Shown here is a 397-nucleotide sequence from Cytophaga hutchinsonii, a member of the family "Bacterial RNase P class A". Ribonuclease P (RNase P) is a ubiquitous endoribonuclease, found in archaea, bacteria and eukarya as well as chloroplasts and mitochondria.
RNA sequence: AAUACAAGCUAUCUUAUCGCCGUUGGCCGCAAGGCUGAAGGAGGAAAGUCCGGGCAACACAGAGCAUCUUACUACCUAACGGGUAGGCUGUUGUUUAGAAAUGAACAAUGGACAGACAGGGCCGCAGAAAAUAACCACCAUGCCUCGGUGUGGAAAGGGUGAAAAAGUGAGGUAAGAGCUCACUCGUGGCGCGGCGACGCGCCAUUGGGGUAAACCUUAGGAGUUGAAAGACCAAAUAGGUUCCGAUUAUGGUGCUGCUCGUACCACAUGGCGCCCAGGCGUCAUUAACCGGAAUGGGUAGGUCGUUUGAGCCUUGCAGUGAUGUAAGGACUAGAUAAAUGAUAAGAGUCACGCCUUUGGCGUGAAACAGAACCCGGCUUACAGGCUUGUAUUGCUU
Numbered sequence: 001a002a003u004a005c006a007a008g009c010u011a012u013c014u015u016a017u018c019g020c021c022g023u024u025g026g027c028c029g030c031a032a033g034g035c036u037g038a039a040g041g042a043g044g045a046a047a048g049u050c051c052g053g054g055c056a057a058c059a060c061a062g063a064g065c066a067u068c069u070u071a072c073u074a075c076c077u078a079a080c081g082g083g084u085a086g087g088c089u090g091u092u093g094u095u096u097a098g099a100a101a102u103g104a105a106c107a108a109u110g111g112a113c114a115g116a117c118a119g120g121g122c123c124g125c126a127g128a129a130a131a132u133a134a135c136c137a138c139c140a141u142g143c144c145u146c147g148g149u150g151u152g153g154a155a156a157g158g159g160u161g162a163a164a165a166a167g168u169g170a171g172g173u174a175a176g177a178g179c180u181c182a183c184u185c186g187u188g189g190c191g192c193g194g195c196g197a198c199g200c201g202c203c204a205u206u207g208g209g210g211u212a213a214a215c216c217u218u219a220g221g222a223g224u225u226g227a228a229a230g231a232c233c234a235a236a237u238a239g240g241u242u243c244c245g246a247u248u249a250u251g252g253u254g255c256u257g258c259u260c261g262u263a264c265c266a267c268a269u270g271g272c273g274c275c276c277a278g279g280c281g282u283c284a285u286u287a288a289c290c291g292g293a294a295u296g297g298g299u300a301g302g303u304c305g306u307u308u309g310a311g312c313c314u315u316g317c318a319g320u321g322a323u324g325u326a327a328g329g330a331c332u333a334g335a336u337a338a339a340u341g342a343u344a345a346g347a348g349u350c351a352c353g354c355c356u357u358u359g360g361c362g363u364g365a366a367a368c369a370g371a372a373c374c375c376g377g378c379u380u381a382c383a384g385g386c387u388u389g390u391a392u393u394g395c396u397u
Stems, first nucleotide, its partner, number of pairs: 001393010012347007020041002023038006046380003050377005055226004067222005072086005087113001088111010114217002119215001121211003135158002138153006166184006185207001186205008230304004240295006312329007
Dot-bracket structure: ((((((((((.(((((((.((.((((((....)))))).))....[[[.[[[[[((((........((((((((((.....)))))(((((((((((....)))))))))).)((...(.(((...........((.((((((....))))))...)).......((((((.......))))))(((((((((....)))))))).).)))...))))))))))))...((((......((((((............................................)))))).....)))).......(((((((....)))))))...........))))))).........................]]]]]]]]...))))))))))....